This 100-nucleotide sequence from Salipaludibacillus keqinensis belongs to the Rfam family "Purine riboswitch aptamer". Pairs were carried over by alignment from the consensus structure, which is taken from published work. The source organism's lineage runs through Bacteria, Bacillati, Bacillota, Caryophanales and Salipaludibacillus. It scores 71 bits against the family's covariance model.
RNA sequence: CAAUGAAAUAAGCCAUUUUUUCGUAUAACCUCAAUAAUACGGUUUGAGGGUUUCUAUUAGGUACCGCAAAUUCCUAACUACGAAGAAGGUGCAGUGCGCC
Numbered sequence: 001c002a003a004u005g006a007a008a009u010a011a012g013c014c015a016u017u018u019u020u021u022c023g024u025a026u027a028a029c030c031u032c033a034a035u036a037a038u039a040c041g042g043u044u045u046g047a048g049g050g051u052u053u054c055u056a057u058u059a060g061g062u063a064c065c066g067c068a069a070a071u072u073c074c075u076a077a078c079u080a081c082g083a084a085g086a087a088g089g090u091g092c093a094g095u096g097c098g099c100c
Stems, first nucleotide, its partner, number of pairs: 018086008029049006058076004063071001